[Rfam]
RNA sequence: UUCUUAUCAAGAGAGGUGGAGGGACUGGCCCGUUGAAGCCCGGCAACCGGUAUUUUUAUAAUACACGGUGCCAAUUCCAGCGGAUAUAAAUCCGGGAGAUAAGGA
Numbered sequence: 001u002u003c004u005u006a007u008c009a010a011g012a013g014a015g016g017u018g019g020a021g022g023g024a025c026u027g028g029c030c031c032g033u034u035g036a037a038g039c040c041c042g043g044c045a046a047c048c049g050g051u052a053u054u055u056u057u058a059u060a061a062u063a064c065a066c067g068g069u070g071c072c073a074a075u076u077c078c079a080g081c082g083g084a085u086a087u088a089a090a091u092c093c094g095g096g097a098g099a100u101a102a103g104g105a
Stems, first nucleotide, its partner, number of pairs: 001105008013041001015040003021031003025080004042072004047068002050064004076097001081094005
SAM riboswitch aptamer (S box leader): a 105-nucleotide sequence from Bacillus sp. FJAT-27986. It scores 96 bits against the family's covariance model.